RNA: Ribosomal protein L10 leader
Organism: Paenibacillus curdlanolyticus
RNA sequence: CAAUUUCGAAUACGCAUACCGUAGACAGUAGGUGCCUUUAGGGCUUAAUUUCCUACCGAGGUGUUAUGAUACAGUGUUUGCAACUUUCAUUCGUAUGGAUGAUUAAGCUGACAGACCAUCAUGGCCUUCGCAUUGUCUGCGAAGGCCUUUCUCAUGCAUCAC
Numbered sequence: 001c002a003a004u005u006u007c008g009a010a011u012a013c014g015c016a017u018a019c020c021g022u023a024g025a026c027a028g029u030a031g032g033u034g035c036c037u038u039u040a041g042g043g044c045u046u047a048a049u050u051u052c053c054u055a056c057c058g059a060g061g062u063g064u065u066a067u068g069a070u071a072c073a074g075u076g077u078u079u080g081c082a083a084c085u086u087u088c089a090u091u092c093g094u095a096u097g098g099a100u101g102a103u104u105a106a107g108c109u110g111a112c113a114g115a116c117c118a119u120c121a122u123g124g125c126c127u128u129c130g131c132a133u134u135g136u137c138u139g140c141g142a143a144g145g146c147c148u149u150u151c152u153c154a155u156g157c158a159u160c161a162c
Stems, first nucleotide, its partner, number of pairs: 028056005034044003123147010